[Rfam]
RNA sequence: UAUAUUGACACUUUUAAAAUUUUCUUGUAUAAUUUAAGCGUGGUUUUUUUUAUCCGCUAUGGCAAUAAAAACUUCUCAGAAUAGGUGUAUUGGACCCGAGGGCAGUGCUCGGCAUCUCCACUUUUUUAAGGGGAUGAAACAGGAUUGACAGGCAUAGUAAAGGAGACAGUUGUUGCUCGGUGAGAAUGCAGCCGUAAAUGCGCAAAAUGAUAAGUGCAAACGACAAUCUCGUUGCCGCUAAUGAUAACUAUGGAUAUGCUAAUUUAGCAGCUGCUUAGUUUAUCUUGUAGCGCGGUUUUUUGCGAAAGUUUACCGGGCAACAGAAAAACUUUCGU
Numbered sequence: 001u002a003u004a005u006u007g008a009c010a011c012u013u014u015u016a017a018a019a020u021u022u023u024c025u026u027g028u029a030u031a032a033u034u035u036a037a038g039c040g041u042g043g044u045u046u047u048u049u050u051u052a053u054c055c056g057c058u059a060u061g062g063c064a065a066u067a068a069a070a071a072c073u074u075c076u077c078a079g080a081a082u083a084g085g086u087g088u089a090u091u092g093g094a095c096c097c098g099a100g101g102g103c104a105g106u107g108c109u110c111g112g113c114a115u116c117u118c119c120a121c122u123u124u125u126u127u128a129a130g131g132g133g134a135u136g137a138a139a140c141a142g143g144a145u146u147g148a149c150a151g152g153c154a155u156a157g158u159a160a161a162g163g164a165g166a167c168a169g170u171u172g173u174u175g176c177u178c179g180g181u182g183a184g185a186a187u188g189c190a191g192c193c194g195u196a197a198a199u200g201c202g203c204a205a206a207a208u209g210a211u212a213a214g215u216g217c218a219a220a221c222g223a224c225a226a227u228c229u230c231g232u233u234g235c236c237g238c239u240a241a242u243g244a245u246a247a248c249u250a251u252g253g254a255u256a257u258g259c260u261a262a263u264u265u266a267g268c269a270g271c272u273g274c275u276u277a278g279u280u281u282a283u284c285u286u287g288u289a290g291c292g293c294g295g296u297u298u299u300u301u302g303c304g305a306a307a308g309u310u311u312a313c314c315g316g317g318c319a320a321c322a323g324a325a326a327a328a329c330u331u332u333c334g335u
Stems, first nucleotide, its partner, number of pairs: 040057004061177005071170003074166004086154003090151003096112005113136007178194004184203001188201002293315004305332006
RNA: Alphaproteobacteria transfer-messenger RNA
Organism: Candidatus Neoehrlichia procyonis